[Rfam]
RNA sequence: CAGGUGCCCUAAGAAUUAUCAAGAUAAACAACUUCUCUGCUUGUCACUACACCUCCUUAGAACAAACUGCCCUUCGGUGACAGGGACAAAUUGAGAGAAAUCGUAACAGACAGAUACAGGCCAGACAGUU
Numbered sequence: 001c002a003g004g005u006g007c008c009c010u011a012a013g014a015a016u017u018a019u020c021a022a023g024a025u026a027a028a029c030a031a032c033u034u035c036u037c038u039g040c041u042u043g044u045c046a047c048u049a050c051a052c053c054u055c056c057u058u059a060g061a062a063c064a065a066a067c068u069g070c071c072c073u074u075c076g077g078u079g080a081c082a083g084g085g086a087c088a089a090a091u092u093g094a095g096a097g098a099a100a101u102c103g104u105a106a107c108a109g110a111c112a113g114a115u116a117c118a119g120g121c122c123a124g125a126c127a128g129u130u
Stems, first nucleotide, its partner, number of pairs: 002057003006053001015044002018041001022036003067124003071120003081109001083107001086104002089101001
Background: Rfam assigns this 130-nucleotide RNA sequence from Erinaceus europaeus to the family "Small Cajal body specific RNA 8". The family's RNA type in Rfam is small Cajal body RNA. scaRNAs are a specific class of small nuclear RNAs which localise to the Cajal bodies and guide the modification of RNA polymerase II transcribed spliceosomal RNAs U1, U2, U4, U5 and U12. U92 belong to the H/ACA box class of guide RNAs as it has the predicted hairpin-hinge-hairpin-tail structure, conserved H/ACA-box motifs and is found associated with GAR1. For this family Rfam cites "Cajal body-specific small nuclear RNAs: a novel class of 2'-O-methylation and pseudouridylation guide RNAs" (Darzacq et al., EMBO J, 2002). It scores 77 bits against the family's covariance model.